[Rfam]
Nucleotides: 084
Stems, first nucleotide, its partner, number of pairs: 012037002017032006040078004045074003048069003055063003
Number, partner (000 for none) and nucleotide at each position: 001000a002000a003000u004000u005000a006000a007000u008000a009000a010000a011000g012037g013036c014000a015000a016000a017032c018031u019030u020029a021028u022027c023000a024000a025000a026000a027022g028021g029020u030019a031018a032017g033000g034000a035000c036013g037012c038000a039000a040078a041077g042076c043075c044000a045074u046073g047072g048069a049068u050067c051000u052000a053000a054000a055063g056062g057061u058000u059000u060000u061057a062056c063055c064000c065000a066000u067050g068049a069048u070000a071000g072047c073046c074045a075043g076042g077041c078040u079000g080000c081000u082000g083000a084000g